[Rfam]
RNA sequence: AGAGUCACCCUUAAGGUGCUCUUUUUCUGCGUGUUAAUAGCUUUUCUCAUUGGCCUGUGAAAGCGGUUAGUGAAUC
Numbered sequence: 001a002g003a004g005u006c007a008c009c010c011u012u013a014a015g016g017u018g019c020u021c022u023u024u025u026u027c028u029g030c031g032u033g034u035u036a037a038u039a040g041c042u043u044u045u046c047u048c049a050u051u052g053g054c055c056u057g058u059g060a061a062a063g064c065g066g067u068u069a070g071u072g073a074a075u076c
Stems, first nucleotide, its partner, number of pairs: 001022004006018004034070005040064003044061003048057002
Shown here is a 76-nucleotide RNA, a member of the family "L13-Bacteroidia ribosomal protein leader". The literature on the family includes a 2020 paper in BMC Microbiol by Eckert and Weinberg, "Discovery of 20 novel ribosomal leader candidates in bacteria and archaea".